The family of this 88-nucleotide RNA from Eubacterium sp. CAG:156 is "GA-cis RNA". Rfam classes the family as a small RNA. The family's consensus secondary structure is taken from published work.
[Rfam]
RNA sequence: GAGAUAAGGAAAUAAAAUGAAUGAAGUUCAUUUUCUAAAGAUAUUUCCGAUGACCAGCCAACAAUUAAAUGGCUAGGCAAUAACACAU
Numbered sequence: 001g002a003g004a005u006a007a008g009g010a011a012a013u014a015a016a017a018u019g020a021a022u023g024a025a026g027u028u029c030a031u032u033u034u035c036u037a038a039a040g041a042u043a044u045u046u047c048c049g050a051u052g053a054c055c056a057g058c059c060a061a062c063a064a065u066u067a068a069a070u071g072g073c074u075a076g077g078c079a080a081u082a083a084c085a086c087a088u
Stems, first nucleotide, its partner, number of pairs: 008048006016032006057078003060074001064070002